The record is a 114-nucleotide RNA sequence from Burkholderia pseudomallei, which matches "Burkholderia sRNA Bp1_Cand684_SIPHT" in Rfam. Rfam's curators put it in the seed alignment.
RNA sequence: AGAAAAGUGACCGCCGCCCCGCGCAGGGGCGACGCUAAUGGACCGUUAGCACAGCAGGUUCAACGACGAGGCGCGGAUCACCGACAAAAAACCCACGUCCCCGCGAGCCACUCC
Numbered sequence: 001a002g003a004a005a006a007g008u009g010a011c012c013g014c015c016g017c018c019c020c021g022c023g024c025a026g027g028g029g030c031g032a033c034g035c036u037a038a039u040g041g042a043c044c045g046u047u048a049g050c051a052c053a054g055c056a057g058g059u060u061c062a063a064c065g066a067c068g069a070g071g072c073g074c075g076g077a078u079c080a081c082c083g084a085c086a087a088a089a090a091a092c093c094c095a096c097g098u099c100c101c102c103g104c105g106a107g108c109c110a111c112u113c114c
Base pairs, nucleotide, nucleotide: 011076012075013074014073015031016030017029018028019027020026058067059066060065096105097104098103